[Rfam]
RNA sequence: GAGCUGUUGCAUGAUGAAUUCAAUGAGUGAUCCAUCAACAGAUUUAAAGCUGUUGACUCAUCAAAUACUGACAAUAGCUU
Numbered sequence: 001g002a003g004c005u006g007u008u009g010c011a012u013g014a015u016g017a018a019u020u021c022a023a024u025g026a027g028u029g030a031u032c033c034a035u036c037a038a039c040a041g042a043u044u045u046a047a048a049g050c051u052g053u054u055g056a057c058u059c060a061u062c063a064a065a066u067a068c069u070g071a072c073a074a075u076a077g078c079u080u
Base pairs, nucleotide, nucleotide: 002079003078004077005076006075007074008073009069013032014031015030017028035056036055037054038053039052043048
RNA: Small nucleolar RNA SNORD71
Organism: Polypterus senegalus